[Rfam]
RNA sequence: AAAAAGGGUGCUCGCUACUUUAAUAGCGCAUCAAAUUCAAAAUUGAGUUUGAUGGGGUAUGGCUAUCAAGACAUACCCAGUACAUAAUUUUUGAGAACGCGAGGCUGUUAGCUGCCAAUUGCACUGACGCCUCC
Numbered sequence: 001a002a003a004a005a006g007g008g009u010g011c012u013c014g015c016u017a018c019u020u021u022a023a024u025a026g027c028g029c030a031u032c033a034a035a036u037u038c039a040a041a042a043u044u045g046a047g048u049u050u051g052a053u054g055g056g057g058u059a060u061g062g063c064u065a066u067c068a069a070g071a072c073a074u075a076c077c078c079a080g081u082a083c084a085u086a087a088u089u090u091u092u093g094a095g096a097a098c099g100c101g102a103g104g105c106u107g108u109u110a111g112c113u114g115c116c117a118a119u120u121g122c123a124c125u126g127a128c129g130c131c132u133c134c
Stems, first nucleotide, its partner, number of pairs: 008083005013028005029054011055078007102132004107128005113123003
RNA: U11 spliceosomal RNA